This 175-nucleotide RNA from Streptomyces zinciresistens belongs to the Rfam family "gntR-DTE RNA". The organism belongs to Streptomyces zinciresistens, within Bacteria.
RNA sequence: CGGGUGAUGGCCGCCGGCGGCCACUUCGUGGCAGGUGAACCUGUCCUGUCCUGCGUACCGGCUCUGGAGAACAGUUCCGGGGAUCAUCCCUUCCUCACGGGAGGGCAACCACGGGGCCUGCCACCUGGUCACGCGCCGCCCUGCUGGCGUCAGAGCAGUGACGAUGACGCGCCCG
Dot-bracket structure: ...............((((((...............................(((((((((...(((....((((((((................................))))).)))))).))))).))))))))))...................................